[Rfam]
RNA sequence: ACUGGAGGACUAAUAGGAUGGAGUCUGAAGAGUGAGACUCGAUUCAUACUGGCCUCCUAAAGAGAAAGGAUUGGGGAGAGCCGUCCUGCUUGCAGAGAAAGCACUGGACUGACUGCACGAUCCGACAUGA
Numbered sequence: 001a002c003u004g005g006a007g008g009a010c011u012a013a014u015a016g017g018a019u020g021g022a023g024u025c026u027g028a029a030g031a032g033u034g035a036g037a038c039u040c041g042a043u044u045c046a047u048a049c050u051g052g053c054c055u056c057c058u059a060a061a062g063a064g065a066a067a068g069g070a071u072u073g074g075g076g077a078g079a080g081c082c083g084u085c086c087u088g089c090u091u092g093c094a095g096a097g098a099a100a101g102c103a104c105u106g107g108a109c110u111g112a113c114u115g116c117a118c119g120a121u122c123c124g125a126c127a128u129g130a
Stems, first nucleotide, its partner, number of pairs: 003059001004057005017044003021040006068123004079114002081111001083109004091103003